[Rfam]
Shown here is a 154-nucleotide RNA sequence from Amborella trichopoda, a member of the family "MIR8565 microRNA precursor family". Gene Ontology terms of the family: RISC complex and miRNA-mediated post-transcriptional gene silencing.

RNA sequence: CCUACACCCAUGUAUGUAGGACCUCAAAGGAUCAUCAUUAAAUUUGGCACAGAUCUCUAAAUAAGUUAUCACAUGAGUGCAAGACUUGAUUUAUCUAGAGAUCUGUGCCAAAUUUAAUUGUGAUCCUUUGGGGUCCUAUACACAUGGGUGUGGG
Numbered sequence: 001c002c003u004a005c006a007c008c009c010a011u012g013u014a015u016g017u018a019g020g021a022c023c024u025c026a027a028a029g030g031a032u033c034a035u036c037a038u039u040a041a042a043u044u045u046g047g048c049a050c051a052g053a054u055c056u057c058u059a060a061a062u063a064a065g066u067u068a069u070c071a072c073a074u075g076a077g078u079g080c081a082a083g084a085c086u087u088g089a090u091u092u093a094u095c096u097a098g099a100g101a102u103c104u105g106u107g108c109c110a111a112a113u114u115u116a117a118u119u120g121u122g123a124u125c126c127u128u129u130g131g132g133g134u135c136c137u138a139u140a141c142a143c144a145u146g147g148g149u150g151u152g153g154g
Base pairs, nucleotide, nucleotide: 002153003152004151005150006149007148008147009146010145011144012143013142015140016139017138018137019136020135021134022133023132024131025130026129027128028127030125031124032123034121035120037118038117039116040115041114042113043112044111045110046109047108048107049106050105051104052103053102054101055100056099057098058097059096061094062093063092064091065090066089067088068087069082072079073078
Dot-bracket structure: .((((((((((((.((((((((((((((.(((.((.(((((((((((((((((((((((.(((((((((..((....))..)....)))))))).))))))))))))))))))))))).)).))).)))))))))))))).)))))))))))).
A search with the family's covariance model found it, with a score of 145 bits. Lineage of the source: Eukaryota > Streptophyta > Embryophyta > Tracheophyta > Amborella. Pairs were carried over by alignment from the consensus structure, which was predicted with RNAalifold.